Record summary: Small Cajal body specific RNA 8: a 129-nucleotide sequence from Phrynocephalus forsythii. Lineage of the source: Eukaryota > Opisthokonta > Chordata > Vertebrata > Phrynocephalus. Rfam's curators write: scaRNAs are a specific class of small nuclear RNAs which localise to the Cajal bodies and guide the modification of RNA polymerase II transcribed spliceosomal RNAs U1, U2, U4, U5 and U12. U92 belong to the H/ACA box class of guide RNAs as it has the predicted hairpin-hinge-hairpin-tail structure, conserved H/ACA-box motifs and is found associated with GAR1. The family's consensus secondary structure is taken from published work. The literature on the family includes a 2002 paper in EMBO J by Darzacq et al., "Cajal body-specific small nuclear RNAs: a novel class of 2'-O-methylation and pseudouridylation guide RNAs". Rfam 15.1 lists 955 matches to the family in 741 species.
[Rfam]
RNA sequence: UGGGAGGUAGAUACCCAACUAGAGGAAAUUUGCUCUAGUUGGCACAACUUCUCCCUAUAGUAAAACUGCCUUCUGAUGACCGGGGUGAGUUGAGGGAAAUCAUAACGGACAGAUACGGGGCAUACAGUG
Numbered sequence: 001u002g003g004g005a006g007g008u009a010g011a012u013a014c015c016c017a018a019c020u021a022g023a024g025g026a027a028a029u030u031u032g033c034u035c036u037a038g039u040u041g042g043c044a045c046a047a048c049u050u051c052u053c054c055c056u057a058u059a060g061u062a063a064a065a066c067u068g069c070c071u072u073c074u075g076a077u078g079a080c081c082g083g084g085g086u087g088a089g090u091u092g093a094g095g096g097a098a099a100u101c102a103u104a105a106c107g108g109a110c111a112g113a114u115a116c117g118g119g120g121c122a123u124a125c126a127g128u129g
Base pairs, nucleotide, nucleotide: 002055003054004053005052006051007050015042016041017040018039022035023034024033065123067122068121069120070119071118072117080108081107082106085103086102087101088100